[Rfam]
RNA sequence: GCUGGGCUCGAUAACGCGGGCUUGUAACCAAGUGGGGGCUUUGAAGUGAUGGGACGUUGACUAUGCUUAUGAGGUUGGGUUCAGUUUGGCUCUCAUCUGGCUCGCCCGAUCCAAGUCAGGAGUUGAACCAAGGCAUCCUAGUGAAGACCUGGGUGUCCUGGGUCCUAGAGUGGAGGGCAUAGCGUGAGGCUGGUCUGACAGAGCAGCGAUCACCUCCCGCUUCUGGCAGUGGAAGGAUUGCGGGCCGGUGCCAUCUGGAUCUGCAUGGCUUAAUGAGCUUGUUCUAAUUGGACCAUUACUUCU
Numbered sequence: 001g002c003u004g005g006g007c008u009c010g011a012u013a014a015c016g017c018g019g020g021c022u023u024g025u026a027a028c029c030a031a032g033u034g035g036g037g038g039c040u041u042u043g044a045a046g047u048g049a050u051g052g053g054a055c056g057u058u059g060a061c062u063a064u065g066c067u068u069a070u071g072a073g074g075u076u077g078g079g080u081u082c083a084g085u086u087u088g089g090c091u092c093u094c095a096u097c098u099g100g101c102u103c104g105c106c107c108g109a110u111c112c113a114a115g116u117c118a119g120g121a122g123u124u125g126a127a128c129c130a131a132g133g134c135a136u137c138c139u140a141g142u143g144a145a146g147a148c149c150u151g152g153g154u155g156u157c158c159u160g161g162g163u164c165c166u167a168g169a170g171u172g173g174a175g176g177g178c179a180u181a182g183c184g185u186g187a188g189g190c191u192g193g194u195c196u197g198a199c200a201g202a203g204c205a206g207c208g209a210u211c212a213c214c215u216c217c218c219g220c221u222u223c224u225g226g227c228a229g230u231g232g233a234a235g236g237a238u239u240g241c242g243g244g245c246c247g248g249u250g251c252c253a254u255c256u257g258g259a260u261c262u263g264c265a266u267g268g269c270u271u272a273a274u275g276a277g278c279u280u281g282u283u284c285u286a287a288u289u290g291g292a293c294c295a296u297u298a299c300u301u302c303u
Stems, first nucleotide, its partner, number of pairs: 001039003004023007028035002043302010055290002057287003060283001062281002065278001067276004072271005077262008087253003091250001097248009106236002110233004115227009125164002128161003132157007141148002165170001172217005181210001183208003190201003
About this RNA: This 303-nucleotide RNA sequence from Populus deltoides belongs to the Rfam family "Plant signal recognition particle RNA". The family's RNA type in Rfam is non-coding RNA gene. A reference for the family is Wild et al. (2002), "Towards the structure of the mammalian signal recognition particle", Curr Opin Struct Biol. The organism belongs to Populus, within Eukaryota. The family is grouped with related families in Rfam's "SRP clan". It scores 224 bits against the family's covariance model.